[Rfam]
RNA sequence: GAUACCGGUUAGUUUUGCUGGUUUGCAUCCAGCUUUGAGAUUCCUCCGCUGUGCAAAUCCAUGCAAAACUCGCUGUGGCU
Numbered sequence: 001g002a003u004a005c006c007g008g009u010u011a012g013u014u015u016u017g018c019u020g021g022u023u024u025g026c027a028u029c030c031a032g033c034u035u036u037g038a039g040a041u042u043c044c045u046c047c048g049c050u051g052u053g054c055a056a057a058u059c060c061a062u063g064c065a066a067a068a069c070u071c072g073c074u075g076u077g078g079c080u
Stems, first nucleotide, its partner, number of pairs: 003078001006075004011070008020060002022057007031050003
This 80-nucleotide RNA sequence from Acipenser ruthenus belongs to the Rfam family "mir-19 microRNA precursor family".
Clan: mir-19 clan.
Rfam 15.1 lists 2,337 matches to the family in 651 species.
The literature on the family includes a 2001 paper in Science by Lagos-Quintana et al., "Identification of novel genes coding for small expressed RNAs".
Rfam links the family to the GO terms miRNA-mediated post-transcriptional gene silencing and RISC complex.